[Rfam]
RNA sequence: AUGAGAACAAGGGGAGAGACUACGUUUUUGUAGCGCCGAAGGAGCAAGCGGAAUACGUGAAUCUCUCAGGCAAAAAGACUCUUGUUUGACG
Numbered sequence: 001a002u003g004a005g006a007a008c009a010a011g012g013g014g015a016g017a018g019a020c021u022a023c024g025u026u027u028u029u030g031u032a033g034c035g036c037c038g039a040a041g042g043a044g045c046a047a048g049c050g051g052a053a054u055a056c057g058u059g060a061a062u063c064u065c066u067c068a069g070g071c072a073a074a075a076a077g078a079c080u081c082u083u084g085u086u087u088g089a090c091g
Stems, first nucleotide, its partner, number of pairs: 006086008020033004035071003038067002042065003048058002
The family of this 91-nucleotide sequence from [Anoxybacillus] calidus is "Glycine riboswitch aptamer". This family represents the bacterial glycine riboswitch. A search with the family's covariance model found it, with a score of 73 bits.